[Rfam]
A member of the RNA family "Microsporidia small subunit ribosomal RNA" from Cyberloma acerinae, 478 nucleotides of a longer RNA. The sequence is in the family's curated seed alignment. The family is grouped with related families in Rfam's "SSU clan".
RNA sequence: CACCAGGUUGAUUCUGCCUGGUGUGGAUGCUAGUCUCAUAGGUUAAGCCAUGCAUGUGUAAGCAAAGCUAGAAGUGGAGCGGCGCAAGGCUCAGUAACGGGCGGACAUUUGAUCUUCUCGUGUGGACAUCCUCUGUAAGCGGAGGGAAAAACACAGGACGCGCGGACGCAGCCCGUGGGUGUAACGGCGGUGGAGAAGAGUAAGACGCCAUCCCAUCAGUUAGUAAGUAGGGUAAGGGCCUACUUAGACGAAGACGGGUACGGGGAAUGAGUGUUUGAUUCCGGAGAGGGAGCCUGAGAGACGGCUACCAGGUCCAAGGACAGCAGCAGGCGCGAAAAUUACCGCAGCCUGCCUCAGGGCGGUAGUAAGGAGACGUGAAUGCGAAGUGCUAGCAAAGAAAGCACUGACAACAGGAGGACAAGACUGGUGCCAGCACCCGCGGUAAUACCAGCUCCUGGAGUGUCUAUGAUGAUUGCUG
Numbered sequence: 001c002a003c004c005a006g007g008u009u010g011a012u013u014c015u016g017c018c019u020g021g022u023g024u025g026g027a028u029g030c031u032a033g034u035c036u037c038a039u040a041g042g043u044u045a046a047g048c049c050a051u052g053c054a055u056g057u058g059u060a061a062g063c064a065a066a067g068c069u070a071g072a073a074g075u076g077g078a079g080c081g082g083c084g085c086a087a088g089g090c091u092c093a094g095u096a097a098c099g100g101g102c103g104g105a106c107a108u109u110u111g112a113u114c115u116u117c118u119c120g121u122g123u124g125g126a127c128a129u130c131c132u133c134u135g136u137a138a139g140c141g142g143a144g145g146g147a148a149a150a151a152c153a154c155a156g157g158a159c160g161c162g163c164g165g166a167c168g169c170a171g172c173c174c175g176u177g178g179g180u181g182u183a184a185c186g187g188c189g190g191u192g193g194a195g196a197a198g199a200g201u202a203a204g205a206c207g208c209c210a211u212c213c214c215a216u217c218a219g220u221u222a223g224u225a226a227g228u229a230g231g232g233u234a235a236g237g238g239c240c241u242a243c244u245u246a247g248a249c250g251a252a253g254a255c256g257g258g259u260a261c262g263g264g265g266a267a268u269g270a271g272u273g274u275u276u277g278a279u280u281c282c283g284g285a286g287a288g289g290g291a292g293c294c295u296g297a298g299a300g301a302c303g304g305c306u307a308c309c310a311g312g313u314c315c316a317a318g319g320a321c322a323g324c325a326g327c328a329g330g331c332g333c334g335a336a337a338a339u340u341a342c343c344g345c346a347g348c349c350u351g352c353c354u355c356a357g358g359g360c361g362g363u364a365g366u367a368a369g370g371a372g373a374c375g376u377g378a379a380u381g382c383g384a385a386g387u388g389c390u391a392g393c394a395a396a397g398a399a400a401g402c403a404c405u406g407a408c409a410a411c412a413g414g415a416g417g418a419c420a421a422g423a424c425u426g427g428u429g430c431c432a433g434c435a436c437c438c439g440c441g442g443u444a445a446u447a448c449c450a451g452c453u454c455c456u457g458g459a460g461u462g463u464c465u466a467u468g469a470u471g472a473u474u475g476c477u478g
Stems, first nucleotide, its partner, number of pairs: 004020005022468010033374005039367002041333001047331003051328003056083002062080002067075002090286003100209004108203002113199007122154003129146007212258003219249003224246008261283004265276004288309002291306003312321003339364001341363003348358004385405006411457006424451004433440002
Description: The base pairs follow the family's consensus structure, which is taken from published work.